[Rfam]
RNA: Lysine riboswitch aptamer
Organism: Clostridium tetani
RNA sequence: ACCCAGGGUAGAGGAGCUAUAAUUAAGAGUACUUAUCUUAAACUGCCAAGUAAUGAUAGAUAGGAAAAGGAAUUAUAGCCGAAGAAAAUAGGGUGGUAAUCUAUUUUCUGGCUUUGCAUAAAAUAUGUGUAAAGCUGUCACUUUAAAAAGUGUUGAGCUACAGAGGUC
Numbered sequence: 001a002c003c004c005a006g007g008g009u010a011g012a013g014g015a016g017c018u019a020u021a022a023u024u025a026a027g028a029g030u031a032c033u034u035a036u037c038u039u040a041a042a043c044u045g046c047c048a049a050g051u052a053a054u055g056a057u058a059g060a061u062a063g064g065a066a067a068a069g070g071a072a073u074u075a076u077a078g079c080c081g082a083a084g085a086a087a088a089u090a091g092g093g094u095g096g097u098a099a100u101c102u103a104u105u106u107u108c109u110g111g112c113u114u115u116g117c118a119u120a121a122a123a124u125a126u127g128u129g130u131a132a133a134g135c136u137g138u139c140a141c142u143u144u145a146a147a148a149a150g151u152g153u154u155g156a157g158c159u160a161c162a163g164a165g166g167u168c
Stems, first nucleotide, its partner, number of pairs: 008161004016079009032064007083109010110136011139152005